[Rfam]
RNA: Tymovirus/Pomovirus/Furovirus tRNA-like 3' UTR element
RNA sequence: UUCUCUCGAGUGCGAGGCCCAUUCACACACAAUGGGUAUUGGGUGCAACCCCCCCGUCCAUCUCGAACGGUCAUCGAGACCA
Numbered sequence: 001u002u003c004u005c006u007c008g009a010g011u012g013c014g015a016g017g018c019c020c021a022u023u024c025a026c027a028c029a030c031a032a033u034g035g036g037u038a039u040u041g042g043g044u045g046c047a048a049c050c051c052c053c054c055c056g057u058c059c060a061u062c063u064c065g066a067a068c069g070g071u072c073a074u075c076g077a078g079a080c081c082a
Stems, first nucleotide, its partner, number of pairs: 005016004010046001017037007041053003055070001057067001062078005